[Rfam]
RNA sequence: UAAUGAUACAGAUAUAAGAUAUGCUGUAUACCCGUGGCUCCGAAUUAGCGUUUAAGCGAUAUGUAAUAUCGUCGUCCAUGGGGACCACCCGAAAGGGUGGUUUUUUUACUAU
Numbered sequence: 001u002a003a004u005g006a007u008a009c010a011g012a013u014a015u016a017a018g019a020u021a022u023g024c025u026g027u028a029u030a031c032c033c034g035u036g037g038c039u040c041c042g043a044a045u046u047a048g049c050g051u052u053u054a055a056g057c058g059a060u061a062u063g064u065a066a067u068a069u070c071g072u073c074g075u076c077c078a079u080g081g082g083g084a085c086c087a088c089c090c091g092a093a094a095g096g097g098u099g100g101u102u103u104u105u106u107u108a109c110u111a112u
Stems, first nucleotide, its partner, number of pairs: 007028005012022003031082006041074002043052003056072006083102008
A member of the RNA family "DUF3800-I RNA", 112 nucleotides long. Actinobacteria, Firmicutes, Fusobacteria, Proteobacteria (1 example), Tenericutes (2 examples). It is annotated as a small RNA.